This 84-nucleotide RNA sequence from Pardalotus punctatus belongs to the Rfam family "Small nucleolar RNA SNORD121A". Rfam classes the family as a C/D-box small nucleolar RNA. On this family, see Yang et al., Nucleic Acids Res 2006: "snoSeeker: an advanced computational package for screening of guide and orphan snoRNA genes in the human genome". The family's consensus secondary structure was predicted with WAR.
RNA sequence: GUUCAAAAUAUAGUGAUGUCUUUUCCAAGCACAUAUCUAAUUGGUCUGUUUGGAAAAUGACUCUUGCUAUGUGAUUUUUUGAUU
Numbered sequence: 001g002u003u004c005a006a007a008a009u010a011u012a013g014u015g016a017u018g019u020c021u022u023u024u025c026c027a028a029g030c031a032c033a034u035a036u037c038u039a040a041u042u043g044g045u046c047u048g049u050u051u052g053g054a055a056a057a058u059g060a061c062u063c064u065u066g067c068u069a070u071g072u073g074a075u076u077u078u079u080u081g082a083u084u
Base pairs, nucleotide, nucleotide: 001084003082004081005080006079008077010075011074

Rfam links the family to the GO terms nucleolus and RNA processing.